RNA sequence: AGAGUGCACAUUCAUUAUCCUUAGGGUCAUGGGAUAAACAAAUACCUACAAAACCAAGUUAGCACACCCUAGAAUGGUUGUAGCAUGAUUGCUAACCUAUGGAUUUGAUACCAAUCAAUGGGAAAAACUU
Numbered sequence: 001a002g003a004g005u006g007c008a009c010a011u012u013c014a015u016u017a018u019c020c021u022u023a024g025g026g027u028c029a030u031g032g033g034a035u036a037a038a039c040a041a042a043u044a045c046c047u048a049c050a051a052a053a054c055c056a057a058g059u060u061a062g063c064a065c066a067c068c069c070u071a072g073a074a075u076g077g078u079u080g081u082a083g084c085a086u087g088a089u090u091g092c093u094a095a096c097c098u099a100u101g102g103a104u105u106u107g108a109u110a111c112c113a114a115u116c117a118a119u120g121g122g123a124a125a126a127a128c129u130u
Stems, first nucleotide, its partner, number of pairs: 009120004014115003022107004027102007047085001052079002055076002059072004
RNA: MIR845_2 microRNA precursor family